RNA sequence: AGCACCUCGUUGGUUAAUGCUACACCAACACGCCAGGCUUAUUCCUGUGGAGUUAUAUAUGAGCGAUAAAAUUAUUCACCUGACUGAC
Number, nucleotide and partner (000 for none) at each position: 001a000002g000003c000004a000005c000006c000007u000008c000009g067010u066011u065012g064013g000014u062015u061016a060017a000018u000019g000020c000021u000022a053023c052024a000025c050026c049027a048028a000029c000030a000031c000032g045033c000034c000035a000036g000037g000038c000039u000040u000041a000042u000043u000044c000045c032046u000047g000048u027049g026050g025051a000052g023053u022054u000055a000056u000057a000058u000059a000060u016061g015062a014063g000064c012065g011066a010067u009068a000069a000070a000071a000072u087073u086074a085075u000076u083077c082078a000079c000080c000081u000082g077083a076084c000085u074086g073087a072088c000